Record summary
Shown here is a 61-nucleotide RNA from Capsella bursa-pastoris, a member of the family "Plastid-psbN 5UTR RNA". Rfam classes the family as a cis-regulatory element. From the family's description: Plastid psbN is a non-coding RNA (ncRNA) recognised in plastids. It was reported as a conserved 11 stem-loop in the prime untranslated region (5UTR) of psbN genes. It has been reported that the motif is retained in a subset of mature transcripts in barley, which can suggests a possible role in transcript alternative 5 prime processing. Lineage of the source: Eukaryota > Viridiplantae > Streptophytina > Spermatophyta > Capsella. For this family Rfam cites "Retrograde signaling in plants: A critical review focusing on the GUN pathway and beyond" (Richter et al., Plant Commun, 2023).

[Rfam]
RNA sequence: UGCAACACCCAUCAAAGGGGUCGUUCCCCAUCCAGGAGCGACUUUACCAUAUUCGGAAUUC
Numbered sequence: 001u002g003c004a005a006c007a008c009c010c011a012u013c014a015a016a017g018g019g020g021u022c023g024u025u026c027c028c029c030a031u032c033c034a035g036g037a038g039c040g041a042c043u044u045u046a047c048c049a050u051a052u053u054c055g056g057a058a059u060u061c
Stems, first nucleotide, its partner, number of pairs: 017045011